[Rfam]
RNA: mir-290 microRNA precursor family
Organism: Microcebus murinus
RNA sequence: GUGUUACUCAAAAUGGAGGCACUUCCCUUUGUCUUCACUGGAAAGUGCUUCUGUUUUGGGUCUCGC
Numbered sequence: 001g002u003g004u005u006a007c008u009c010a011a012a013a014u015g016g017a018g019g020c021a022c023u024u025c026c027c028u029u030u031g032u033c034u035u036c037a038c039u040g041g042a043a044a045g046u047g048c049u050u051c052u053g054u055u056u057u058g059g060g061u062c063u064c065g066c
Base pairs, nucleotide, nucleotide: 006061007060008059009058010057011056012055013054014053015052016051017050018049019048020047021046022045023044024042025041026040
Dot-bracket structure: .....(((((((((((((((((((((.............))).)))))))))))))))))).....